[Rfam]
RNA sequence: AUAUGAUAUUGCGACAGUAAUCUAACUUAGUACGAGAGGAACAGUUAGGUCACAUAAUUGGUUAAUACAGCUAGUUGAAAAGCUAGUGCUGUGAAGCUACCAUGUGUUGGAUUAUGACUGAACGCCUCUAAGUCAGAAUCCAUACUGAAUAUGCAAUGUUAUUCACCAAUUUUAAUAUUACAUGUAAACAAAUAGGUUUUUUUAACCCUACUUCAUACUAAGGUAUCAACGCUUAUUACGUUAUACUAAAAAAAUAAUUUCAAAUAUUAAAAUUGAUACAUCCUCUGUAUACGACUUUGAUGCAUCCAGGUAUUGUAAGUACGAGAGUAGGCUUUGUCUUACGAUCUACUGAGAUUCAUCCUGUGUUCUAAAGAUGUGU
Numbered sequence: 001a002u003a004u005g006a007u008a009u010u011g012c013g014a015c016a017g018u019a020a021u022c023u024a025a026c027u028u029a030g031u032a033c034g035a036g037a038g039g040a041a042c043a044g045u046u047a048g049g050u051c052a053c054a055u056a057a058u059u060g061g062u063u064a065a066u067a068c069a070g071c072u073a074g075u076u077g078a079a080a081a082g083c084u085a086g087u088g089c090u091g092u093g094a095a096g097c098u099a100c101c102a103u104g105u106g107u108u109g110g111a112u113u114a115u116g117a118c119u120g121a122a123c124g125c126c127u128c129u130a131a132g133u134c135a136g137a138a139u140c141c142a143u144a145c146u147g148a149a150u151a152u153g154c155a156a157u158g159u160u161a162u163u164c165a166c167c168a169a170u171u172u173u174a175a176u177a178u179u180a181c182a183u184g185u186a187a188a189c190a191a192a193u194a195g196g197u198u199u200u201u202u203u204a205a206c207c208c209u210a211c212u213u214c215a216u217a218c219u220a221a222g223g224u225a226u227c228a229a230c231g232c233u234u235a236u237u238a239c240g241u242u243a244u245a246c247u248a249a250a251a252a253a254a255u256a257a258u259u260u261c262a263a264a265u266a267u268u269a270a271a272a273u274u275g276a277u278a279c280a281u282c283c284u285c286u287g288u289a290u291a292c293g294a295c296u297u298u299g300a301u302g303c304a305u306c307c308a309g310g311u312a313u314u315g316u317a318a319g320u321a322c323g324a325g326a327g328u329a330g331g332c333u334u335u336g337u338c339u340u341a342c343g344a345u346c347u348a349c350u351g352a353g354a355u356u357c358a359u360c361c362u363g364u365g366u367u368c369u370a371a372a373g374a375u376g377u378g379u
Stems, first nucleotide, its partner, number of pairs: 005160008015147004020050008051106005059099003066093005071086006108142003115135005168274007278377005283299001287295001302369001304367001306365001308362003312355002319349003324345001327342005

Rfam assigns this 379-nucleotide part of an RNA from Cryptosporidium parvum to the family "Eukaryotic large subunit ribosomal RNA". Taxonomically the source falls in Cryptosporidium parvum (Eukaryota, Sar, Apicomplexa, Eimeriorina). On this family, see Yusupov et al., Science 2001: "Crystal structure of the ribosome at 5.5 A resolution". The family is grouped with related families in Rfam's "LSU clan".